[Rfam]
RNA sequence: CUGCAAGCCUCCAGCAUGCGCAGGCCUGGAGUGGCUCUGUGCAUUCCUAUGGUGCUUGCACUAAGAACAAUUUGGAAACGAUUUGAGGCCUUGCUCUACACCAUCUGCAGAGCAAGGUUAUAGAAAUUUCAGACAAUU
Numbered sequence: 001c002u003g004c005a006a007g008c009c010u011c012c013a014g015c016a017u018g019c020g021c022a023g024g025c026c027u028g029g030a031g032u033g034g035c036u037c038u039g040u041g042c043a044u045u046c047c048u049a050u051g052g053u054g055c056u057u058g059c060a061c062u063a064a065g066a067a068c069a070a071u072u073u074g075g076a077a078a079c080g081a082u083u084u085g086a087g088g089c090c091u092u093g094c095u096c097u098a099c100a101c102c103a104u105c106u107g108c109a110g111a112g113c114a115a116g117g118u119u120a121u122a123g124a125a126a127u128u129u130c131a132g133a134c135a136a137u138u
Base pairs, nucleotide, nucleotide: 003059004058005057006056007055008054017043018042019041023036024035025034026033075130076129077128078127089117090116091115092114093113094112096110097109
RNA: Small nucleolar RNA SNORA9